RNA sequence: CUGAGUGGGCAGUCGGUGUCUAUCUGCAACAUUCGCAGCUCGACCCUUGUGCUUGUUUUGGC
Numbered sequence: 001c002u003g004a005g006u007g008g009g010c011a012g013u014c015g016g017u018g019u020c021u022a023u024c025u026g027c028a029a030c031a032u033u034c035g036c037a038g039c040u041c042g043a044c045c046c047u048u049g050u051g052c053u054u055g056u057u058u059u060g061g062c
Base pairs, nucleotide, nucleotide: 003058004057005056006055007054008053009052010051011050015046016045018044019043020042022040024038025037026036027035